[Rfam]
RNA sequence: UAUAAUAAACUCACCCAUAGAAAGUCCACAUGACUGCUUGCAGGCAAGGUGUACUUUCUAUGAGGGGAGUAAACAGACAUGAACAAGUAGGACGGUAGUCCGGAUUGUGAAUGUCUGUUACGAUUUCGAGAGUGCGAUAGCACGGAGAAAUCGUAUUAUA
Dot-bracket structure: (((((((..(((...((((((((((.(((..(.(((....))).)...))).))))))))))....)))...((((((((..((((...((((....))))...))))..))))))))..(((((((....((((....))))...))))))))))))))
The family of this 160-nucleotide RNA sequence is "Clostridiales-1 RNA". The sequence is in the family's curated seed alignment.